[Rfam]
RNA sequence: GGGGCGGGCCGUGACUGGCGCUUGGGUGGAGUACCACCAGGGAGCGGCCCGGCGGACGCCGCCACCUGCCGCGCGCCUGGGCGACCAGC
Dot-bracket structure: ..(.((((((((..(([[[[[....((((....))))..))..)))))))).).............((((..]]]]]..))))......
The family of this 89-nucleotide RNA sequence from Streptomyces roseolilacinus is "ZMP/ZTP riboswitch aptamer (pfl RNA motif)".
A search with the family's covariance model found it, with a score of 51 bits.